[Rfam]
RNA sequence: UGAGUAAGCUAGACAAUCGCGGCUGGUCGUGCUCGUUGAGAACACGCAUCAGAUGAGGAAAGUCCGGGCUCCUUAGGGUAAGGAUGCCGGGUAACUCCCGGUGAAGGCGACUUCAAGGAAAGUGCAACAGAAAUAUACCGCCUGCAUUGGUUGAUAACGUUAUGUUUAUCAGGGCAGGUAAGGGUGGAAAGGCGAGGUAAGAGCUCACCGGCAGCAUGAAAACAUGUAUGCCCUGUAAACCCCAUCCGGAGCAACACCGUGGCUGGCAAUACGUGACCCGCGUGCCUAUGGAGGUGGCUCAAGCGUAGGCGAAAUCCUUCGCUUAGAUAGAUGAUUGUCCAAGACAGAACCCGGCUUAUCGGCUUACUCAGCUA
Numbered sequence: 001u002g003a004g005u006a007a008g009c010u011a012g013a014c015a016a017u018c019g020c021g022g023c024u025g026g027u028c029g030u031g032c033u034c035g036u037u038g039a040g041a042a043c044a045c046g047c048a049u050c051a052g053a054u055g056a057g058g059a060a061a062g063u064c065c066g067g068g069c070u071c072c073u074u075a076g077g078g079u080a081a082g083g084a085u086g087c088c089g090g091g092u093a094a095c096u097c098c099c100g101g102u103g104a105a106g107g108c109g110a111c112u113u114c115a116a117g118g119a120a121a122g123u124g125c126a127a128c129a130g131a132a133a134u135a136u137a138c139c140g141c142c143u144g145c146a147u148u149g150g151u152u153g154a155u156a157a158c159g160u161u162a163u164g165u166u167u168a169u170c171a172g173g174g175c176a177g178g179u180a181a182g183g184g185u186g187g188a189a190a191g192g193c194g195a196g197g198u199a200a201g202a203g204c205u206c207a208c209c210g211g212c213a214g215c216a217u218g219a220a221a222a223c224a225u226g227u228a229u230g231c232c233c234u235g236u237a238a239a240c241c242c243c244a245u246c247c248g249g250a251g252c253a254a255c256a257c258c259g260u261g262g263c264u265g266g267c268a269a270u271a272c273g274u275g276a277c278c279c280g281c282g283u284g285c286c287u288a289u290g291g292a293g294g295u296g297g298c299u300c301a302a303g304c305g306u307a308g309g310c311g312a313a314a315u316c317c318u319u320c321g322c323u324u325a326g327a328u329a330g331a332u333g334a335u336u337g338u339c340c341a342a343g344a345c346a347g348a349a350c351c352c353g354g355c356u357u358a359u360c361g362g363c364u365u366a367c368u369c370a371g372c373u374a
Base pairs, nucleotide, nucleotide: 001370002369003368004367005366006365007364008363009362010361011359012339013338014337015336016335017334018333020055021054023052024051025050026049027048060357061356062355064354065353066352067351068350069251070250071249072248077279078278082247083246084245085244086243087101088100089099090098091097102116103114104113105112106111117242118241122240123239124236125235126234138183139182140179141178142177143176144175145174147172148171149170150169151168191209192208194206195205196204210231211229214227215226216225217224218223255296256295257294258293265286270284271283272282273281274280303322304321305320307318308317309316
Record summary
This 374-nucleotide RNA sequence from Mageeibacillus indolicus belongs to the Rfam family "Bacterial RNase P class A". By type it is a ribozyme. Its family is annotated with dimeric ribonuclease P complex, tRNA processing and ribonuclease P activity in the Gene Ontology. About the family: Ribonuclease P (RNase P) is a ubiquitous endoribonuclease, found in archaea, bacteria and eukarya as well as chloroplasts and mitochondria. Its best characterised activity is the generation of mature 5'-ends of tRNAs by cleaving the 5'-leader elements of precursor-tRNAs. Cellular RNase Ps are ribonucleoproteins. RNA from bacterial RNase Ps retains its catalytic activity in the absence of the protein subunit, i.e. it is a ribozyme.